RNA sequence: CACUAAAUGAUGAUUUGCUUUUCUUUUGUCGGAUACCCCUUCACCUAUUUUAUGAGUGAGAAUCCUAAUCUGAAGUG
Numbered sequence: 001c002a003c004u005a006a007a008u009g010a011u012g013a014u015u016u017g018c019u020u021u022u023c024u025u026u027u028g029u030c031g032g033a034u035a036c037c038c039c040u041u042c043a044c045c046u047a048u049u050u051u052a053u054g055a056g057u058g059a060g061a062a063u064c065c066u067a068a069u070c071u072g073a074a075g076u077g
Stems, first nucleotide, its partner, number of pairs: 001077004
Dot-bracket structure: ((((.....................................................................))))
Rfam assigns this 77-nucleotide RNA sequence from Gadus morhua to the family "Small nucleolar RNA SNORD101".
Pairs were carried over by alignment from the consensus structure, which was predicted with PFOLD.
Rfam classes the family as a C/D-box small nucleolar RNA.
A reference for the family is Vitali et al. (2003), "Identification of 13 novel human modification guide RNAs", Nucleic Acids Res.
It scores 52 bits against the family's covariance model.
Lineage of the source: Eukaryota > Chordata > Paracanthopterygii > Gadiformes > Gadus.